[Rfam]
Nucleotides: 121
Base pairs, nucleotide, nucleotide: 060083061082062081063080065078066077067076068075086100087099089098090097091096
Number, partner (000 for none) and nucleotide at each position: 001000u002000a003000g004000u005000c006000c007000g008000c009000c010000c011000c012000g013000u014000g015000g016000g017000a018000c019000a020000c021000c022000u023000c024000c025000g026000c027000c028000c029000g030000g031000a032000a033000g034000a035000g036000g037000g038000u039000c040000g041000c042000c043000c044000g045000g046000c047000u048000a049000c050000u051000c052000u053000g054000g055000c056000u057000g058000g059000g060083u061082g062081c063080g064000c065078c066077u067076u068075c069000c070000u071000g072000c073000c074000g075068g076067a077066a078065g079000a080063c081062g082061c083060a084000a085000a086100g087099c088000c089098g090097a091096c092000a093000g094000c095000c096091g097090u098089c099087g100086c101000a102000u103000c104000c105000c106000a107000g108000g109000g110000a111000g112000c113000a114000c115000a116000u117000c118000c119000a120000u121000g

Record summary:
A member of the RNA family "Streptomyces-metH RNA" from Streptomyces pristinaespiralis, 121 nucleotides long. The source organism's lineage runs through Bacteria, Bacillati, Kitasatosporales, Streptomycetaceae and Streptomyces pristinaespiralis. It is annotated as a small RNA. Pairs were carried over by alignment from the consensus structure, which is taken from published work.